[Rfam]
RNA sequence: UGGUAAUGUCUCCUUCACCUGUAUCAAUGGAGGCACUCGGCUAUGCUGUGGGUUGAAAGAUGACCUUAGACGCGCGAUGUUGUCAGUGGUGUGGCGUGAGGUGGGGUUAAAUGCCCU
Numbered sequence: 001u002g003g004u005a006a007u008g009u010c011u012c013c014u015u016c017a018c019c020u021g022u023a024u025c026a027a028u029g030g031a032g033g034c035a036c037u038c039g040g041c042u043a044u045g046c047u048g049u050g051g052g053u054u055g056a057a058a059g060a061u062g063a064c065c066u067u068a069g070a071c072g073c074g075c076g077a078u079g080u081u082g083u084c085a086g087u088g089g090u091g092u093g094g095c096g097u098g099a100g101g102u103g104g105g106g107u108u109a110a111a112u113g114c115c116c117u
Stems, first nucleotide, its partner, number of pairs: 002019003007035007036100004040095008050066006069084004103117005
Source information: The record is a 117-nucleotide sequence from Halobacillus yeomjeoni, which matches "epsC RNA" in Rfam. Rfam 15.1 lists 450 matches to the family in 334 species. A search with the family's covariance model found it, with a score of 96 bits. Lineage of the source: Bacteria > Bacillati > Caryophanales > Bacillaceae > Halobacillus. The base pairs follow the family's consensus structure, which is taken from published work.